L31-Firmicutes ribosomal protein leader: a 32-nucleotide sequence. A reference for the family is Eckert and Weinberg (2020), "Discovery of 20 novel ribosomal leader candidates in bacteria and archaea", BMC Microbiol. Rfam classes the family as a cis-regulatory leader. Rfam's curators put it in the seed alignment.
RNA sequence: CUAUGAUCUGUGAUAUGAUCAUGGCAAAGGAG
Numbered sequence: 001c002u003a004u005g006a007u008c009u010g011u012g013a014u015a016u017g018a019u020c021a022u023g024g025c026a027a028a029g030g031a032g
Stems, first nucleotide, its partner, number of pairs: 001024008